[Rfam]
RNA sequence: AAAAUUAUUGCGGGAGAGAGGUUCAUUAAGAACCCGCCGAAGAGCAACAAGCCCGGAAACUCUCAGGCAAAAGGACUGUAAUAUUAAA
Numbered sequence: 001a002a003a004a005u006u007a008u009u010g011c012g013g014g015a016g017a018g019a020g021g022u023u024c025a026u027u028a029a030g031a032a033c034c035c036g037c038c039g040a041a042g043a044g045c046a047a048c049a050a051g052c053c054c055g056g057a058a059a060c061u062c063u064c065a066g067g068c069a070a071a072a073g074g075a076c077u078g079u080a081a082u083a084u085u086a087a088a
Base pairs, nucleotide, nucleotide: 006083007082008081009080010079011078012077013076020034021033022032023031036068037067038066039064040063042062043061044060048055
Shown here is an 88-nucleotide RNA sequence, a member of the family "Glycine riboswitch aptamer". Rfam links the family to the GO term glycine biosynthetic process. A search with the family's covariance model found it, with a score of 64 bits.